L17 ribosomal protein downstream element: an 83-nucleotide sequence from Atopococcus tabaci. It is annotated as a cis-regulatory element.

RNA sequence: CGAGCGUUAUGAUGUUGAGGGCCCAACACUGGGUUCUUUAGUCUAGCUCAUACUCUUCAGGAGAAACAGCAAUGUUUUUCCUG
Numbered sequence: 001c002g003a004g005c006g007u008u009a010u011g012a013u014g015u016u017g018a019g020g021g022c023c024c025a026a027c028a029c030u031g032g033g034u035u036c037u038u039u040a041g042u043c044u045a046g047c048u049c050a051u052a053c054u055c056u057u058c059a060g061g062a063g064a065a066a067c068a069g070c071a072a073u074g075u076u077u078u079u080c081c082u083g
Stems, first nucleotide, its partner, number of pairs: 002049004011043003017038008058083009